RNA sequence: AGGGCGGUAUCCAAAGGGAACUGCACCGGCACACCAAUCGCAAGUCUAUAAUUACAUUCUGCCUUGAUCAAUCAAUGACAGGGACGGAGGA
Numbered sequence: 001a002g003g004g005c006g007g008u009a010u011c012c013a014a015a016g017g018g019a020a021c022u023g024c025a026c027c028g029g030c031a032c033a034c035c036a037a038u039c040g041c042a043a044g045u046c047u048a049u050a051a052u053u054a055c056a057u058u059c060u061g062c063c064u065u066g067a068u069c070a071a072u073c074a075a076u077g078a079c080a081g082g083g084a085c086g087g088a089g090g091a
Stems, first nucleotide, its partner, number of pairs: 002027002004024005010019002059087003062083005068078003
RNA: pan motif